[Rfam]
RNA sequence: UUUUUAUCCAGAGUGGCGGAGGGACAGGCCCUGCGAAGCCACAGCAACCGGUCCGCCUCCUGCGGAUGCCAGGUGCUAAAUCCUACCCGCCGACGCCCCCCAGGGGAGCGGCGGGAAAGAUGGGAA
Numbered sequence: 001u002u003u004u005u006a007u008c009c010a011g012a013g014u015g016g017c018g019g020a021g022g023g024a025c026a027g028g029c030c031c032u033g034c035g036a037a038g039c040c041a042c043a044g045c046a047a048c049c050g051g052u053c054c055g056c057c058u059c060c061u062g063c064g065g066a067u068g069c070c071a072g073g074u075g076c077u078a079a080a081u082c083c084u085a086c087c088c089g090c091c092g093a094c095g096c097c098c099c100c101c102a103g104g105g106g107a108g109c110g111g112c113g114g115g116a117a118a119g120a121u122g123g124g125a126a
Stems, first nucleotide, its partner, number of pairs: 001126008013042005021031003026084003043077004048073002050070003081118001086115006
Overview: This 126-nucleotide RNA from Desulfuromonas soudanensis belongs to the Rfam family "SAM riboswitch aptamer (S box leader)". The base pairs follow the family's consensus structure, which is taken from published work. It scores 79 bits against the family's covariance model.